[Rfam]
RNA sequence: CUUCCCAGCUGUUGUGUCUGAGUGGCACUGUGUGCCACUGAGCUACAGUGGUGGAGCUGAAGACCUGAGGAG
Numbered sequence: 001c002u003u004c005c006c007a008g009c010u011g012u013u014g015u016g017u018c019u020g021a022g023u024g025g026c027a028c029u030g031u032g033u034g035c036c037a038c039u040g041a042g043c044u045a046c047a048g049u050g051g052u053g054g055a056g057c058u059g060a061a062g063a064c065c066u067g068a069g070g071a072g
Stems, first nucleotide, its partner, number of pairs: 001072004

Source information:
Rfam assigns this 72-nucleotide RNA from Lipotes vexillifer to the family "Small nucleolar RNA SNORD66". NCBI's taxonomy places the organism under Eukaryota, Teleostomi, Tetrapoda, Mammalia, Lipotes. The base pairs follow the family's consensus structure, which was predicted with RNAalifold. Rfam 15.1 lists 1,346 matches to the family in 614 species. From the family's description: snoRNA HBII-142 is part of the C/D family of snoRNAs. It is the human orthologue of the mouse MBII-142 snoRNA and is predicted to guide 2'O-ribose methylation of small 18S rRNA at residue C1272.